[Rfam]
RNA sequence: AUAAUUAUAUAUGAACAGGCGAUAAAUAUUAAUUUAUGCAGCCGGGCUUACUUAAAAGCAGUGGAAAAAAACCAUGGGACAAUU
Numbered sequence: 001a002u003a004a005u006u007a008u009a010u011a012u013g014a015a016c017a018g019g020c021g022a023u024a025a026a027u028a029u030u031a032a033u034u035u036a037u038g039c040a041g042c043c044g045g046g047c048u049u050a051c052u053u054a055a056a057a058g059c060a061g062u063g064g065a066a067a068a069a070a071a072c073c074a075u076g077g078g079a080c081a082a083u084u
Base pairs, nucleotide, nucleotide: 012081013080016078018043019042020041022037023036024035025034026033027032046059047058048057049056061075062074063073064072